[Rfam]
Nucleotides: 069
Base pairs, nucleotide, nucleotide: 006064007063008062009061010060012058013057014056015054016053017052018051019050020049021048022047023046
Number, partner (000 for none) and nucleotide at each position: 001000u002000c003000c004000c005000c006064a007063a008062c009061a010060a011000u012058a013057u014056c015054c016053u017052g018051a019050u020049g021048c022047u023046g024000a025000g026000u027000g028000a029000g030000u031000g032000g033000u034000g035000c036000u037000c038000g039000c040000a041000g042000a043000c044000u045000c046023c047022a048021g049020c050019a051018u052017c053016a054015g055000u056014g057013a058012u059000u060010u061009u062008g063007u064006u065000g066000a067000g068000g069000a

Notes:
The record is a 69-nucleotide RNA from Sphenodon punctatus, which matches "mir-338 microRNA precursor family" in Rfam. The family's consensus secondary structure was predicted with RNAalifold. Taxonomically the source falls in Sphenodon (Eukaryota, Craniata, Teleostomi, Sphenodontidae). The match comes from Rfam's covariance-model search (85 bits). A reference for the family is Chen et al. (2005), "The developmental miRNA profiles of zebrafish as determined by small RNA cloning", Genes Dev.